[Rfam]
RNA: Small nucleolar RNA SNORA29
Organism: Myotis lucifugus
RNA sequence: CUUUCCCUUUGACUACCACAUACUCUCCUAACAAUAGAUUGUAGUGGCUAUGUUUAUGGGGUAGAUUAUAAUUGCCAUGAUUUGACGAGGGAGGAUUUAUUUGUGUCCUCUACCUAUAUGAAAUGGUUGAACAAAAACAA
Numbered sequence: 001c002u003u004u005c006c007c008u009u010u011g012a013c014u015a016c017c018a019c020a021u022a023c024u025c026u027c028c029u030a031a032c033a034a035u036a037g038a039u040u041g042u043a044g045u046g047g048c049u050a051u052g053u054u055u056a057u058g059g060g061g062u063a064g065a066u067u068a069u070a071a072u073u074g075c076c077a078u079g080a081u082u083u084g085a086c087g088a089g090g091g092a093g094g095a096u097u098u099a100u101u102u103g104u105g106u107c108c109u110c111u112a113c114c115u116a117u118a119u120g121a122a123a124u125g126g127u128u129g130a131a132c133a134a135a136a137a138c139a140a
Stems, first nucleotide, its partner, number of pairs: 004060003016047004074127004092115003